[Rfam]
RNA sequence: GACGAAUAGUCGGGGAGCUUCAUGCUGAGAUCGCUUUGCGAGACCCGUUGAACCUGAAUCAGAUAAUACUGGCGUAGGGAACUAUGAGGACAGCAGG
Numbered sequence: 001g002a003c004g005a006a007u008a009g010u011c012g013g014g015g016a017g018c019u020u021c022a023u024g025c026u027g028a029g030a031u032c033g034c035u036u037u038g039c040g041a042g043a044c045c046c047g048u049u050g051a052a053c054c055u056g057a058a059u060c061a062g063a064u065a066a067u068a069c070u071g072g073c074g075u076a077g078g079g080a081a082c083u084a085u086g087a088g089g090a091c092a093g094c095a096g097g
Base pairs, nucleotide, nucleotide: 006085007084008083009082010081011047012046013045014044017025018024032040033039034038053078054077055076056075059072060071061070062069
RNA: TPP riboswitch aptamer (THI element)
Organism: Veronia nyctiphanis